Annotation:
Rfam assigns this 73-nucleotide sequence from Scyliorhinus torazame to the family "mir-34 microRNA precursor family". Its family is annotated with miRNA-mediated post-transcriptional gene silencing and RISC complex in the Gene Ontology. NCBI's taxonomy places the organism under Eukaryota, Metazoa, Gnathostomata, Galeoidea, Scyliorhinus. Human mir-34a was discovered computationally and later experimentally verified. The mature sequence is excised from the 5' arm of the hairpin. Clan: mir-34 clan. The base pairs follow the family's consensus structure, which was predicted with RNAalifold.
[Rfam]
RNA sequence: GUUUGCCUGGCUGUGUGGUUAGUGAUUGCUUAGUUAGAGUUUACCAAUCAGCUAACUACACUGCCUAGCAACC
Numbered sequence: 001g002u003u004u005g006c007c008u009g010g011c012u013g014u015g016u017g018g019u020u021a022g023u024g025a026u027u028g029c030u031u032a033g034u035u036a037g038a039g040u041u042u043a044c045c046a047a048u049c050a051g052c053u054a055a056c057u058a059c060a061c062u063g064c065c066u067a068g069c070a071a072c073c
Stems, first nucleotide, its partner, number of pairs: 003071004009065002013061010023050006030043001
Dot-bracket structure: ..((((..((..((((((((((((((((.(............).)))))).))))))))))..))..))))..